The family of this 98-nucleotide sequence from Halosaccharopolyspora lacisalsi is "Glycine riboswitch aptamer".
RNA sequence: GGCGAUCACGGAGAAAAGCAGGGGCGUCGUCGCCCCUCGCCCACGGUGCAAGCCGCCACGCGCGGUGAAACUCUCAGGCCAAUGACUCCGGGGAGACG
Numbered sequence: 001g002g003c004g005a006u007c008a009c010g011g012a013g014a015a016a017a018g019c020a021g022g023g024g025c026g027u028c029g030u031c032g033c034c035c036c037u038c039g040c041c042c043a044c045g046g047u048g049c050a051a052g053c054c055g056c057c058a059c060g061c062g063c064g065g066u067g068a069a070a071c072u073c074u075c076a077g078g079c080c081a082a083u084g085a086c087u088c089c090g091g092g093g094a095g096a097c098g
Stems, first nucleotide, its partner, number of pairs: 006093002009090005020037004039079003043074001046073001048071001052066004